The record is a 77-nucleotide RNA from Alligator mississippiensis, which matches "Mammalian CPEB3 ribozyme" in Rfam. It scores 41 bits against the family's covariance model. Taxonomically the source falls in Alligator (Eukaryota, Opisthokonta, Gnathostomata, Alligatorinae). The base pairs follow the family's consensus structure, which is taken from published work.

RNA sequence: UUGACAACUCAGAGGUUGCAAGAAGAAGUGUUCAUGGUGCAAGCCUGUCAGAUUCCAAUGAACCUGUGAAUUCUGCU
Dot-bracket structure: .............((((...[[.[[[[(((.......))).))))...(((.(((....))).)))....]]]].]]